Shown here is a 79-nucleotide RNA sequence from Clostridium sp. CAG:299, a member of the family "ZMP/ZTP riboswitch aptamer (pfl RNA motif)". Pairs were carried over by alignment from the consensus structure, which is taken from published work. The organism belongs to Clostridium, within Bacteria. It scores 55 bits against the family's covariance model.
RNA sequence: GAGUCAUCAUAUGACUGACGGAAGUGGAAUAAACCACAUGAAGUAUGAUUUUAAAAAGCCGACCGUCUGGGCACUCUGC
Numbered sequence: 001g002a003g004u005c006a007u008c009a010u011a012u013g014a015c016u017g018a019c020g021g022a023a024g025u026g027g028a029a030u031a032a033a034c035c036a037c038a039u040g041a042a043g044u045a046u047g048a049u050u051u052u053a054a055a056a057a058g059c060c061g062a063c064c065g066u067c068u069g070g071g072c073a074c075u076c077u078g079c
Stems, first nucleotide, its partner, number of pairs: 003052001006049007015040001017067005024037004058072003